[Rfam]
RNA sequence: CUCUUAUCAAGAGUGGUGGAGGGAAUGGCCCUAUGAAACCCGGCAACCGUCAGCGAUACUGAUAGGUGCUAAAUCCAUCAAAGCUAUCCACGCUUUGAAAGAUGAGAG
Numbered sequence: 001c002u003c004u005u006a007u008c009a010a011g012a013g014u015g016g017u018g019g020a021g022g023g024a025a026u027g028g029c030c031c032u033a034u035g036a037a038a039c040c041c042g043g044c045a046a047c048c049g050u051c052a053g054c055g056a057u058a059c060u061g062a063u064a065g066g067u068g069c070u071a072a073a074u075c076c077a078u079c080a081a082a083g084c085u086a087u088c089c090a091c092g093c094u095u096u097g098a099a100a101g102a103u104g105a106g107a108g
Stems, first nucleotide, its partner, number of pairs: 001108008013041001015040003021031003025078004042070004047066002049063004074100001079097006
SAM riboswitch aptamer (S box leader): a 108-nucleotide RNA sequence from Gracilibacillus boraciitolerans. A search with the family's covariance model found it, with a score of 95 bits. NCBI's taxonomy places the organism under Bacteria, Bacillota, Bacilli, Caryophanales, Gracilibacillus boraciitolerans.